[Rfam]
RNA sequence: CACCCAGCGGGGCAGGCGCUCAGCGCCGGCCGGAAUUGGAACAGGGGCUGGCCAAGCGCUCGCGGGGGAAGCCGGGGGGUCGAAUGUCGGGGGACAUUCGACCCCUUUUUU
Numbered sequence: 001c002a003c004c005c006a007g008c009g010g011g012g013c014a015g016g017c018g019c020u021c022a023g024c025g026c027c028g029g030c031c032g033g034a035a036u037u038g039g040a041a042c043a044g045g046g047g048c049u050g051g052c053c054a055a056g057c058g059c060u061c062g063c064g065g066g067g068g069a070a071g072c073c074g075g076g077g078g079g080u081c082g083a084a085u086g087u088c089g090g091g092g093g094a095c096a097u098u099c100g101a102c103c104c105c106u107u108u109u110u111u
Stems, first nucleotide, its partner, number of pairs: 003067003007063005012057002015027005028053006036045002075106014
A member of the RNA family "Xanthomonadaceae sRNA asX1" from Cognatilysobacter bugurensis, 111 nucleotides long. The match comes from Rfam's covariance-model search (92 bits). The organism belongs to Cognatilysobacter, within Bacteria. It is annotated as a small RNA.